Notes
Shown here is a 213-nucleotide RNA sequence, a member of the family "ilvB-OMG RNA".
RNA sequence: GUCUCACCUAUGGCAACAGCUAACGUCGAGUACCCUCGGCCUCUGGCUCACUGGAUUGAUCCGAUUAUUCAAGCCAGCUGUUUGUGAGUCCCAUAAUCAAUUUGCGCCGCAUUGGCCAGGUUGAGGGCCAGACACUGCGCUACCUCGCAGGGCGACGAUACACGGUUUGUGAUCGAUUUUCCCUGAUGGAGCGUCCCUCCGUGGGGCGGAUUG
Numbered sequence: 001g002u003c004u005c006a007c008c009u010a011u012g013g014c015a016a017c018a019g020c021u022a023a024c025g026u027c028g029a030g031u032a033c034c035c036u037c038g039g040c041c042u043c044u045g046g047c048u049c050a051c052u053g054g055a056u057u058g059a060u061c062c063g064a065u066u067a068u069u070c071a072a073g074c075c076a077g078c079u080g081u082u083u084g085u086g087a088g089u090c091c092c093a094u095a096a097u098c099a100a101u102u103u104g105c106g107c108c109g110c111a112u113u114g115g116c117c118a119g120g121u122u123g124a125g126g127g128c129c130a131g132a133c134a135c136u137g138c139g140c141u142a143c144c145u146c147g148c149a150g151g152g153c154g155a156c157g158a159u160a161c162a163c164g165g166u167u168u169g170u171g172a173u174c175g176a177u178u179u180u181c182c183c184u185g186a187u188g189g190a191g192c193g194u195c196c197c198u199c200c201g202u203g204g205g206g207c208g209g210a211u212u213g
Base pairs, nucleotide, nucleotide: 018048019047020046021045022044025040026039027038028037029036030035051077052076053075056072057071058070059069060067088128089127091126092125098123099122100121101120102119103118104117148185149184150183151182152181154179156175157174158173159172161171162170163169164168196209197208199206200205